[Rfam]
RNA sequence: GCCGGUCCUCGGUAGUGGCCCUCGGGUCGCCCCCGCAGAACUCCGACAGGGCUCCGACGGGGCUCCGGAAUCGUUCUGACACGGUGAGCCGGGUGCUUCGAUCGAUGGCCGGC
Numbered sequence: 001g002c003c004g005g006u007c008c009u010c011g012g013u014a015g016u017g018g019c020c021c022u023c024g025g026g027u028c029g030c031c032c033c034c035g036c037a038g039a040a041c042u043c044c045g046a047c048a049g050g051g052c053u054c055c056g057a058c059g060g061g062g063c064u065c066c067g068g069a070a071u072c073g074u075u076c077u078g079a080c081a082c083g084g085u086g087a088g089c090c091g092g093g094u095g096c097u098u099c100g101a102u103c104g105a106u107g108g109c110c111g112g113c
Stems, first nucleotide, its partner, number of pairs: 001113007009105005017097003021093005027087005
Dot-bracket structure: (((((((.(((((...(((.(((((.(((((...................................................))))).))))).)))...))))).)))))))
RNA: Actino-pnp RNA
Organism: Actinomadura craniellae